[Rfam]
The record is a 96-nucleotide RNA sequence from Dendrobium catenatum, which matches "MIR535 microRNA precursor family" in Rfam. NCBI's taxonomy places the organism under Eukaryota, Tracheophyta, Liliopsida, Orchidaceae, Dendrobium. The family's consensus secondary structure was predicted with RNAalifold. Rfam links the family to the GO terms RISC complex and miRNA-mediated post-transcriptional gene silencing. The match comes from Rfam's covariance-model search (80 bits).

RNA sequence: UUGUUGCAUUGACAACGAGAGAGAGCACGCUGGUUGGCGGCCAUGAACGCGGUCAUGACGGUUUACUUGCGUGCUCCCUCUCGCUGUCAUCCACUU
Numbered sequence: 001u002u003g004u005u006g007c008a009u010u011g012a013c014a015a016c017g018a019g020a021g022a023g024a025g026c027a028c029g030c031u032g033g034u035u036g037g038c039g040g041c042c043a044u045g046a047a048c049g050c051g052g053u054c055a056u057g058a059c060g061g062u063u064u065a066c067u068u069g070c071g072u073g074c075u076c077c078c079u080c081u082c083g084c085u086g087u088c089a090u091c092c093a094c095u096u
Stems, first nucleotide, its partner, number of pairs: 010089005016083002020079002023076001025074006032067003